The family of this 36-nucleotide RNA sequence is "Iron response element I". It is one of the family's seed sequences. Rfam classes the family as a cis-regulatory element. The base pairs follow the family's consensus structure, which is taken from published work.
[Rfam]
RNA sequence: AGGUUACCUGCUUCAACAGUGCUUGAACGGCAACCU
Numbered sequence: 001a002g003g004u005u006a007c008c009u010g011c012u013u014c015a016a017c018a019g020u021g022c023u024u025g026a027a028c029g030g031c032a033a034c035c036u
Base pairs, nucleotide, nucleotide: 001036002035003034004033005032007030008029010028012027013026014025015024016023017021